A member of the RNA family "Bacterial large subunit ribosomal RNA" from Pseudobythopirellula maris, 329 nucleotides of a longer RNA. Rfam links the family to the GO terms structural constituent of ribosome and ribosome.

RNA sequence: GAUAAGGCAGGUGAGAAUCCUGCCCGCCGAAAGCCUAAGGUUUCCUGGGGUAGGUAAUUCCGCCCAGGGUUAGCCGGUGCCUAAGUCGAGGCCGAAAGGCGUAGACGAUGGAUAGCAGGUUAAUAUUCCUGCGCCGGCCGUGUGGACCGAUGGAGGGACGGCGUUUGAAUGGUGAGGGGACGAUUAGAAAUGUCCCUGGCCGCAAGGCUAACCCCGCAUACGUUGGGUAUGUCAUCUGAAGGACGUCCAAGAAAAGCUCCUAAGGGUUGAAGCACGGUUGACCGUACUAAAACUGACACAGGUAGGCGAGACGAGUAGUCUAAGGCGCU
Numbered sequence: 001g002a003u004a005a006g007g008c009a010g011g012u013g014a015g016a017a018u019c020c021u022g023c024c025c026g027c028c029g030a031a032a033g034c035c036u037a038a039g040g041u042u043u044c045c046u047g048g049g050g051u052a053g054g055u056a057a058u059u060c061c062g063c064c065c066a067g068g069g070u071u072a073g074c075c076g077g078u079g080c081c082u083a084a085g086u087c088g089a090g091g092c093c094g095a096a097a098g099g100c101g102u103a104g105a106c107g108a109u110g111g112a113u114a115g116c117a118g119g120u121u122a123a124u125a126u127u128c129c130u131g132c133g134c135c136g137g138c139c140g141u142g143u144g145g146a147c148c149g150a151u152g153g154a155g156g157g158a159c160g161g162c163g164u165u166u167g168a169a170u171g172g173u174g175a176g177g178g179g180a181c182g183a184u185u186a187g188a189a190a191u192g193u194c195c196c197u198g199g200c201c202g203c204a205a206g207g208c209u210a211a212c213c214c215c216g217c218a219u220a221c222g223u224u225g226g227g228u229a230u231g232u233c234a235u236c237u238g239a240a241g242g243a244c245g246u247c248c249a250a251g252a253a254a255a256g257c258u259c260c261u262a263a264g265g266g267u268u269g270a271a272g273c274a275c276g277g278u279u280g281a282c283c284g285u286a287c288u289a290a291a292a293c294u295g296a297c298a299c300a301g302g303u304a305g306g307c308g309a310g311a312c313g314a315g316u317a318g319u320c321u322a323a324g325g326c327g328c329u
Base pairs, nucleotide, nucleotide: 006024007023008022009021010020011019025327026326027325028324033307034306035305036304039288040287044068045067046066047065048064049063053061054060075284076283077282078281080111081110085106086105087104089102091100092099093098115132116131117130118129119128135280136279137278138277139276140275141274142273143272147265148264152260153259154258155257160247161246162245163244166240171236172235173234174233175232176197177196178195179194180193181192198209199208200207201206213226214225216223217222293302294301309321310320311319312318